RNA sequence: AAUUCAAUAGAUUUUUUCACUCAUAUAAUGCCAUUAAUAAGGUUUGGCUGUUUCUACCAAAUGACCGUAAAUCGUUUGACUAUGGGUGGGAUUAUUAUAUUC
Numbered sequence: 001a002a003u004u005c006a007a008u009a010g011a012u013u014u015u016u017u018c019a020c021u022c023a024u025a026u027a028a029u030g031c032c033a034u035u036a037a038u039a040a041g042g043u044u045u046g047g048c049u050g051u052u053u054c055u056a057c058c059a060a061a062u063g064a065c066c067g068u069a070a071a072u073c074g075u076u077u078g079a080c081u082a083u084g085g086g087u088g089g090g091a092u093u094a095u096u097a098u099a100u101u102c
Stems, first nucleotide, its partner, number of pairs: 018088008030048004058078007

Rfam assigns this 102-nucleotide sequence from Alkaliphilus serpentinus to the family "Purine riboswitch aptamer". Rfam links the family to the GO term purine nucleobase biosynthetic process. The match comes from Rfam's covariance-model search (84 bits). Taxonomically the source falls in Alkaliphilus (Bacteria, Bacillota, Clostridia, Natronincolaceae).